[Rfam]
RNA: Small nucleolar RNA SNORD60
RNA sequence: AGCCAGUGAAGACAAACAUAAGUUUUCUGACACCUCGUAUGAGAGCUGUGUCACAGCUCAUGAUUCUAACUUUGAUCUGAGGCUC
Numbered sequence: 001a002g003c004c005a006g007u008g009a010a011g012a013c014a015a016a017c018a019u020a021a022g023u024u025u026u027c028u029g030a031c032a033c034c035u036c037g038u039a040u041g042a043g044a045g046c047u048g049u050g051u052c053a054c055a056g057c058u059c060a061u062g063a064u065u066c067u068a069a070c071u072u073u074g075a076u077c078u079g080a081g082g083c084u085c
Stems, first nucleotide, its partner, number of pairs: 001084004045057005